[Rfam]
RNA sequence: UAUAAACAACACCACAAAGCUUAUAUAGGUCCAUAAUUGGUUGGACGUCUCUACCAACUACCGUAAUAGUUGCCUAUAAGUGUUACUGGUCACAGU
Numbered sequence: 001u002a003u004a005a006a007c008a009a010c011a012c013c014a015c016a017a018a019g020c021u022u023a024u025a026u027a028g029g030u031c032c033a034u035a036a037u038u039g040g041u042u043g044g045a046c047g048u049c050u051c052u053a054c055c056a057a058c059u060a061c062c063g064u065a066a067u068a069g070u071u072g073c074c075u076a077u078a079a080g081u082g083u084u085a086c087u088g089g090u091c092a093c094a095g096u
Base pairs, nucleotide, nucleotide: 019081020080021079022078023077024076025075029046030045031044032043033042055072056071057070058069059068060067
A member of the RNA family "Purine riboswitch aptamer" from Blautia obeum, 96 nucleotides long. The organism belongs to Blautia, within Bacteria.